[Rfam]
The family of this 201-nucleotide RNA from Propithecus coquereli is "Connexin-43 internal ribosome entry site (IRES)". Rfam links the family to the GO term ribosome binding. The literature on the family includes a 1999 paper in FEBS Lett by Schiavi et al., "Connexin43 mRNA contains a functional internal ribosome entry site". Pairs were carried over by alignment from the consensus structure, which is taken from published work. About the family: This family represents the connexin-43 internal ribosome entry site (IRES) which allows cap independent translation during conditions such as heat shock and stress.
RNA sequence: ACUUUUUAUGUGGUGUCAGCAAUUUUUUUCAUUAGGUAGAAAGAGUGAGGAAGGUACCAGACAGCAGCAGACUUUUAAACUUUAGACACUUUUGACUGCUUGAACUUACUUUUUCAUUUUACUUCAUCCUCCAAGGAGCGCUAUCACUCGGUGUGCCUACUUCACUUCUUUUAAGAACAACAAACAGGCAACAUGAGCCAC
Numbered sequence: 001a002c003u004u005u006u007u008a009u010g011u012g013g014u015g016u017c018a019g020c021a022a023u024u025u026u027u028u029u030c031a032u033u034a035g036g037u038a039g040a041a042a043g044a045g046u047g048a049g050g051a052a053g054g055u056a057c058c059a060g061a062c063a064g065c066a067g068c069a070g071a072c073u074u075u076u077a078a079a080c081u082u083u084a085g086a087c088a089c090u091u092u093u094g095a096c097u098g099c100u101u102g103a104a105c106u107u108a109c110u111u112u113u114u115c116a117u118u119u120u121a122c123u124u125c126a127u128c129c130u131c132c133a134a135g136g137a138g139c140g141c142u143a144u145c146a147c148u149c150g151g152u153g154u155g156c157c158u159a160c161u162u163c164a165c166u167u168c169u170u171u172u173a174a175g176a177a178c179a180a181c182a183a184a185c186a187g188g189c190a191a192c193a194u195g196a197g198c199c200a201c
Stems, first nucleotide, its partner, number of pairs: 003019002007015003028138003032134002035131002039125003047118002050115001052114003069093003074088001094109001098105001147197004153192001154190004161180002165175003